[Rfam]
RNA sequence: GUCUCUGGUGAUGAUCAAAAUGCAUACUUUCGUUCUUCUGAAUCGCCCUUCUCAUGGCGCCGUGCGGAACCAUCGAGACCUGAACUGAAGAGAC
Numbered sequence: 001g002u003c004u005c006u007g008g009u010g011a012u013g014a015u016c017a018a019a020a021u022g023c024a025u026a027c028u029u030u031c032g033u034u035c036u037u038c039u040g041a042a043u044c045g046c047c048c049u050u051c052u053c054a055u056g057g058c059g060c061c062g063u064g065c066g067g068a069a070c071c072a073u074c075g076a077g078a079c080c081u082g083a084a085c086u087g088a089a090g091a092g093a094c
Stems, first nucleotide, its partner, number of pairs: 003092004
RNA: Small nucleolar RNA Z159/U59
Organism: Panicum virgatum